MarS sRNA: a 161-nucleotide RNA sequence from Streptococcus pasteurianus. Rfam's curators write: Interacts with the 5'UTR of the mga transcript (the multiple virulence gene regulator gene) and was renamed MarS for mag-activating regulatory sRNA. In MarS deletion strains expression of mga and several Mga-activated genes is reduced. This down-regulation of virulence factors leads to increased susceptibility of the deletion strain to phagocytosis, reduced adherence to human keratinocytes. However, the lack of MarS increased bacterial dissemination and tolerance towards oxidative stress. Rfam classes the family as a small RNA.
[Rfam]
RNA sequence: AUGCGAUGAGCCGAAUUAACUCAACUUGAGAGUUUAUUUGCGCAGAGGAGGUCAUUCUAGUUCGACUAGAAACGCAGGAGCGGACUUUGACAAUUUGUGUGAACCUUUUUGUCACACUCAUUUGAGUGCCUCGUUUCCCUACUUUUUGGUAGGGAUUUUUU
Numbered sequence: 001a002u003g004c005g006a007u008g009a010g011c012c013g014a015a016u017u018a019a020c021u022c023a024a025c026u027u028g029a030g031a032g033u034u035u036a037u038u039u040g041c042g043c044a045g046a047g048g049a050g051g052u053c054a055u056u057c058u059a060g061u062u063c064g065a066c067u068a069g070a071a072a073c074g075c076a077g078g079a080g081c082g083g084a085c086u087u088u089g090a091c092a093a094u095u096u097g098u099g100u101g102a103a104c105c106u107u108u109u110u111g112u113c114a115c116a117c118u119c120a121u122u123u124g125a126g127u128g129c130c131u132c133g134u135u136u137c138c139c140u141a142c143u144u145u146u147u148g149g150u151a152g153g154g155a156u157u158u159u160u161u
Stems, first nucleotide, its partner, number of pairs: 012040005018034005045132004049087004073082003088114006115128004136155008